[Rfam]
RNA: Streptomyces-metK RNA
Organism: Streptomyces alkaliphilus
RNA sequence: UUGGCGGGGGGUGACCCGUUCGGGGAGCGGCCGGAUAGACUGUGCGCGAGCCGCGCCCGUCCACGGGCCGCUCCACCCUUCUCAGUCAGCAGCCGCUGCAAACCCAGGGAG
Numbered sequence: 001u002u003g004g005c006g007g008g009g010g011g012u013g014a015c016c017c018g019u020u021c022g023g024g025g026a027g028c029g030g031c032c033g034g035a036u037a038g039a040c041u042g043u044g045c046g047c048g049a050g051c052c053g054c055g056c057c058c059g060u061c062c063a064c065g066g067g068c069c070g071c072u073c074c075a076c077c078c079u080u081c082u083c084a085g086u087c088a089g090c091a092g093c094c095g096c097u098g099c100a101a102a103c104c105c106a107g108g109g110a111g
Base pairs, nucleotide, nucleotide: 048073049072050071051070053068056067057066058065059064087098088097089096090095